[Rfam]
RNA: Purine riboswitch aptamer
Nucleotides: 098
Base pairs, nucleotide, nucleotide: 018084019083020082021081022080023079024078025077029047030046031045032044033043034042056074057073058072059071060070061069
Number, partner (000 for none) and nucleotide at each position: 001000u002000a003000a004000a005000a006000a007000a008000u009000u010000a011000a012000a013000u014000a015000a016000g017000u018084u019083a020082c021081u022080u023079a024078u025077a026000u027000a028000u029047u030046c031045u032044u033043u034042g035000a036000a037000u038000a039000a040000g041000g042034c043033a044032a045031a046030g047029a048000g049000u050000u051000u052000c053000u054000a055000c056074a057073a058072g059071c060070g061069a062000c063000c064000g065000g066000a067000a068000a069061u070060u071059g072058c073057u074056u075000a076000c077025u078024a079023u080022a081021a082020g083019u084018g085000a086000g087000a088000g089000c090000a091000u092000a093000g094000a095000u096000a097000u098000c